About this RNA: The family of this 123-nucleotide RNA sequence from Kaistia sp. 32K is "Alphaproteobacterial ar14". Rfam links the family to the GO term biological process involved in symbiotic interaction. A reference for the family is del Val et al. (2012), "A survey of sRNA families in alpha-proteobacteria", RNA Biol. The base pairs follow the family's consensus structure. Lineage of the source: Bacteria > Alphaproteobacteria > Hyphomicrobiales > Kaistiaceae > Kaistia.
[Rfam]
RNA sequence: AGAAUUCGCCUGGAACGAAUCUCCUCCCUCGUUCCCCGCGAUACGGCGCCAGCGAACCUCCUCCCUCGCGAAGCGCCACCCAAAGAGAACGCCCGUCGACCUCCUCCCCGACGGGCGUUUUCU
Numbered sequence: 001a002g003a004a005u006u007c008g009c010c011u012g013g014a015a016c017g018a019a020u021c022u023c024c025u026c027c028c029u030c031g032u033u034c035c036c037c038g039c040g041a042u043a044c045g046g047c048g049c050c051a052g053c054g055a056a057c058c059u060c061c062u063c064c065c066u067c068g069c070g071a072a073g074c075g076c077c078a079c080c081c082a083a084a085g086a087g088a089a090c091g092c093c094c095g096u097c098g099a100c101c102u103c104c105u106c107c108c109c110g111a112c113g114g115g116c117g118u119u120u121u122c123u
Base pairs, nucleotide, nucleotide: 007040008039009038012035013034014033015032016031017030045077046076047075048074049073052069053068054067089118090117091116092115093114094113095112096111097110098109